Shown here is a 79-nucleotide sequence from Hordeum vulgare, a member of the family "Small nucleolar RNA Z199".
The literature on the family includes a 2003 paper in Nucleic Acids Res by Chen et al., "The high diversity of snoRNAs in plants: identification and comparative study of 120 snoRNA genes from Oryza sativa".
The base pairs follow the family's consensus structure, which was predicted with PFOLD.
The source organism's lineage runs through Eukaryota, Liliopsida, Pooideae, Hordeinae and Hordeum vulgare.
Gene Ontology terms of the family: RNA processing and nucleolus.

RNA sequence: GGUUCAAGUGAUGAAGUGAAACUGCAACAAUAUGACAGGAGUUACACUCCCGUGAUUCGUAGUUUGAAGUCUGAUGAUU
Numbered sequence: 001g002g003u004u005c006a007a008g009u010g011a012u013g014a015a016g017u018g019a020a021a022c023u024g025c026a027a028c029a030a031u032a033u034g035a036c037a038g039g040a041g042u043u044a045c046a047c048u049c050c051c052g053u054g055a056u057u058c059g060u061a062g063u064u065u066g067a068a069g070u071c072u073g074a075u076g077a078u079u
Stems, first nucleotide, its partner, number of pairs: 001079002004077003038050004